[Rfam]
RNA sequence: ACAACUACAAAGCCGAAUCUGAUUCCCUGGAAACACAGCUGGGGAUAGGAACCGGGGAACCGAAUAGUUUUCUGGGGUUUGUCUCCUACGAGAGCGAAGGCACGUUCGUGGAGUAGGCAGAGAAGUCUUCCUUCUUUCAACCCGACAGCUAACCCGGUAGGCGAACAGGAAGAUUUG
Numbered sequence: 001a002c003a004a005c006u007a008c009a010a011a012g013c014c015g016a017a018u019c020u021g022a023u024u025c026c027c028u029g030g031a032a033a034c035a036c037a038g039c040u041g042g043g044g045a046u047a048g049g050a051a052c053c054g055g056g057g058a059a060c061c062g063a064a065u066a067g068u069u070u071u072c073u074g075g076g077g078u079u080u081g082u083c084u085c086c087u088a089c090g091a092g093a094g095c096g097a098a099g100g101c102a103c104g105u106u107c108g109u110g111g112a113g114u115a116g117g118c119a120g121a122g123a124a125g126u127c128u129u130c131c132u133u134c135u136u137u138c139a140a141c142c143c144g145a146c147a148g149c150u151a152a153c154c155c156g157g158u159a160g161g162c163g164a165a166c167a168g169g170a171a172g173a174u175u176u177g
Stems, first nucleotide, its partner, number of pairs: 012162003018050003051158006061074002075143003085117004120138004